[Rfam]
RNA sequence: GACCUUUUUGUUGCCCAUUCAUUCCGGUCCAGAAUGGAUGUGGUGUCAAAAAAGGCAAACAGGAAUUCUUGUUCAAACUGGUUUAGGGAGCUGGUUGUGUACCUUCCUCCUCUUCUGUUUUUGCAAUGACAAAA
Numbered sequence: 001g002a003c004c005u006u007u008u009u010g011u012u013g014c015c016c017a018u019u020c021a022u023u024c025c026g027g028u029c030c031a032g033a034a035u036g037g038a039u040g041u042g043g044u045g046u047c048a049a050a051a052a053a054g055g056c057a058a059a060c061a062g063g064a065a066u067u068c069u070u071g072u073u074c075a076a077a078c079u080g081g082u083u084u085a086g087g088g089a090g091c092u093g094g095u096u097g098u099g100u101a102c103c104u105u106c107c108u109c110c111u112c113u114u115c116u117g118u119u120u121u122u123g124c125a126a127u128g129a130c131a132a133a134a
Stems, first nucleotide, its partner, number of pairs: 003055005009048002012045004016040008069126003074123004084117004088112002093103002
A member of the RNA family "Small nucleolar RNA SNORA13" from Oreocharis arfaki, 134 nucleotides long. ACA13 is a member of the H/ACA class of snoRNA that guide the sites of modification of uridines to pseudouridines. It is annotated as an H/ACA-box small nucleolar RNA. Its family is annotated with RNA processing and nucleolus in the Gene Ontology. The family's consensus secondary structure was predicted with CMfinder.